[Rfam]
RNA sequence: AACAUUUCUCCAACUGAAGCACACACUUUUGUUCUGAGAGCAGUAAGUGCUAUUAGUUGGGGUAGAGUUG
Dot-bracket structure: ....((.((((.((((((((((..(((..............)))..))))).))))).)))).)).....